[Rfam]
RNA sequence: AUGAACCGAUACCGGAGGGGGAUAAGGAUUAUCCGGGGGAUGACCUGCGAAAGCAGGCGGCUGCUCAGAGAGCACAACCGAUGCCCCGCAACACCUCAACAGCGACCCGCCCCGGCGCUCAGGUAUCGUUCG
Numbered sequence: 001a002u003g004a005a006c007c008g009a010u011a012c013c014g015g016a017g018g019g020g021g022a023u024a025a026g027g028a029u030u031a032u033c034c035g036g037g038g039g040a041u042g043a044c045c046u047g048c049g050a051a052a053g054c055a056g057g058c059g060g061c062u063g064c065u066c067a068g069a070g071a072g073c074a075c076a077a078c079c080g081a082u083g084c085c086c087c088g089c090a091a092c093a094c095c096u097c098a099a100c101a102g103c104g105a106c107c108c109g110c111c112c113c114g115g116c117g118c119u120c121a122g123g124u125a126u127c128g129u130u131c132g
Base pairs, nucleotide, nucleotide: 002132003131004130005129007128008127009126010125011124012123013122020034021033022032023031024030036087037086038085039084044057045056046055047054048053058080059079060078062074063073064072065071066070
RNA: EFASI RNA